This 186-nucleotide sequence from Lentibacillus populi belongs to the Rfam family "Group II catalytic intron D1-D4-5". Its family is annotated with Group II intron splicing in the Gene Ontology. It scores 82 bits against the family's covariance model. The family has 139 seed sequences and 720 matches in Rfam 15.1. From the family's description: Group II introns are found in rRNA, tRNA and mRNA of organelles in fungi, plants and protists, and also in mRNA in bacteria. Taxonomically the source falls in Lentibacillus (Bacteria, Bacillati, Bacillota, Bacillaceae).
RNA sequence: UCUAACGUUACAACCGAGGAUGGGAAUGACGGAGCCAUGUUUCCCGAAACCAUCCCGUCAAUACUCCUGCAUGCGUUAUGGCUGACAGGUCAUGGGGUUUGAAGUACAGGUAGAUUCGGCAGAACGAAGGCUGAAGCCAUUCCUUUUAGAAAAGGUAUGCCGACGGAUAUGCCGCACGGCUGAAAA
Numbered sequence: 001u002c003u004a005a006c007g008u009u010a011c012a013a014c015c016g017a018g019g020a021u022g023g024g025a026a027u028g029a030c031g032g033a034g035c036c037a038u039g040u041u042u043c044c045c046g047a048a049a050c051c052a053u054c055c056c057g058u059c060a061a062u063a064c065u066c067c068u069g070c071a072u073g074c075g076u077u078a079u080g081g082c083u084g085a086c087a088g089g090u091c092a093u094g095g096g097g098u099u100u101g102a103a104g105u106a107c108a109g110g111u112a113g114a115u116u117c118g119g120c121a122g123a124a125c126g127a128a129g130g131c132u133g134a135a136g137c138c139a140u141u142c143c144u145u146u147u148a149g150a151a152a153a154g155g156u157a158u159g160c161c162g163a164c165g166g167a168u169a170u171g172c173c174g175c176a177c178g179g180c181u182g183a184a185a186a
Base pairs, nucleotide, nucleotide: 018055019054020053021052022051023050031045032044034042056178057177058176066110067109068108069107070101071100073098074097076095077094078093079092080091081090082089083088117174118173119172120171121170125165126164129161130160131149132148133147139145